[Rfam]
RNA sequence: GCUGUCAGUUGCUCAGUAGGCAGUGUAGAUCCUGUGUGGCAAUCAGCAGCUACAUCUGGCUACUGGGUCUCCGACGGCUCUG
Numbered sequence: 001g002c003u004g005u006c007a008g009u010u011g012c013u014c015a016g017u018a019g020g021c022a023g024u025g026u027a028g029a030u031c032c033u034g035u036g037u038g039g040c041a042a043u044c045a046g047c048a049g050c051u052a053c054a055u056c057u058g059g060c061u062a063c064u065g066g067g068u069c070u071c072c073g074a075c076g077g078c079u080c081u082g
Base pairs, nucleotide, nucleotide: 013066014065015064016063017062018061021058022057023055024054025053026052027051028050032049033048034047035046
The record is an 82-nucleotide sequence from Amphiprion ocellaris, which matches "mir-221 microRNA precursor family" in Rfam.
The organism belongs to Amphiprion, within Eukaryota.